RNA sequence: UGUCUCCUCCUCCACCUCCUUGGUGGAUUAAGCCCGGACCCCUCAAACGGUUCGGGCUUUCUUUU
Numbered sequence: 001u002g003u004c005u006c007c008u009c010c011u012c013c014a015c016c017u018c019c020u021u022g023g024u025g026g027a028u029u030a031a032g033c034c035c036g037g038a039c040c041c042c043u044c045a046a047a048c049g050g051u052u053c054g055g056g057c058u059u060u061c062u063u064u065u
Stems, first nucleotide, its partner, number of pairs: 008027003012023003031058010
Dot-bracket structure: .......(((.(((......))).)))...((((((((((........)))))))))).......

The record is a 65-nucleotide RNA from Zeimonas arvi, which matches "Betaproteobacteria toxic small RNA" in Rfam. Overexpression in amino aid rich medium attenuates growth, suggesting role in repressing amino acid intake and metabolism.